[Rfam]
RNA sequence: GUCAGCACCUCUUCUUGAAAGAAGAGGCUUAGGGCUCUUUUCUUUGAUAGCUGACCAGCUUAAGUUCCUCUCACGGGGCUACGUUUAGGGGAAGCGUUAAAAGUCCUACCUUAGAAUGCGAAGCCAGUUCUAAGCUCUAGAACCAAGCAGUUAAACAGUUGUAGCAAGAGGUAAAACAGUGCUGCGAAAGAAAGUUACCGCCCUUAAACUUUGGCGAGGCUCACUUAAC
Numbered sequence: 001g002u003c004a005g006c007a008c009c010u011c012u013u014c015u016u017g018a019a020a021g022a023a024g025a026g027g028c029u030u031a032g033g034g035c036u037c038u039u040u041u042c043u044u045u046g047a048u049a050g051c052u053g054a055c056c057a058g059c060u061u062a063a064g065u066u067c068c069u070c071u072c073a074c075g076g077g078g079c080u081a082c083g084u085u086u087a088g089g090g091g092a093a094g095c096g097u098u099a100a101a102a103g104u105c106c107u108a109c110c111u112u113a114g115a116a117u118g119c120g121a122a123g124c125c126a127g128u129u130c131u132a133a134g135c136u137c138u139a140g141a142a143c144c145a146a147g148c149a150g151u152u153a154a155a156c157a158g159u160u161g162u163a164g165c166a167a168g169a170g171g172u173a174a175a176a177c178a179g180u181g182c183u184g185c186g187a188a189a190g191a192a193a194g195u196u197a198c199c200g201c202c203c204u205u206a207a208a209c210u211u212u213g214g215c216g217a218g219g220c221u222c223a224c225u226u227a228a229c
Base pairs, nucleotide, nucleotide: 001055002054003053004052005051006050007048009027010026011024012023014021015020028033058215059214060213062211063080064079065078066077067076083209084208085207086206087205088204089203090202091201104141105140110134111133112132113131114130115129116128117127118225122221123220124219125218147185148184149183150182151181155180156179158177159176160175162173163172

HNH endonuclease-associated RNA and ORF (HEARO) RNA: a 229-nucleotide RNA sequence from Halothece sp. PCC 7418. The literature on the family includes a 2009 paper in Nature by Weinberg et al., "Exceptional structured noncoding RNAs revealed by bacterial metagenome analysis".